[Rfam]
RNA sequence: CUGCUGCUGAUGACGUGACCACUGAACUGAGUUCUAGAAACUGACAUGUUGGAGAGUACUGAGAACAGAGUGAAGCCA
Numbered sequence: 001c002u003g004c005u006g007c008u009g010a011u012g013a014c015g016u017g018a019c020c021a022c023u024g025a026a027c028u029g030a031g032u033u034c035u036a037g038a039a040a041c042u043g044a045c046a047u048g049u050u051g052g053a054g055a056g057u058a059c060u061g062a063g064a065a066c067a068g069a070g071u072g073a074a075g076c077c078a
Stems, first nucleotide, its partner, number of pairs: 003076003035044001036042002
The record is a 78-nucleotide sequence from Dipodomys ordii, which matches "small Cajal body-specific RNA 18" in Rfam.
On this family, see Darzacq et al., EMBO J 2002: "Cajal body-specific small nuclear RNAs: a novel class of 2'-O-methylation and pseudouridylation guide RNAs".
Rfam describes the family as follows. scaRNAs are a specific class of small nuclear RNAs which localise to the Cajal bodies and guide the modification of RNA polymerase II transcribed spliceosomal RNAs U1, U2, U4, U5 and U12. This C/D box domain U91 (also known as U4-8) was identified by Darzacq and is predicted to guide the 2'O-ribose methylation of U4 snRNA C8.
Rfam classes the family as a small Cajal body RNA.
Taxonomically the source falls in Dipodomys (Eukaryota, Craniata, Mammalia, Theria).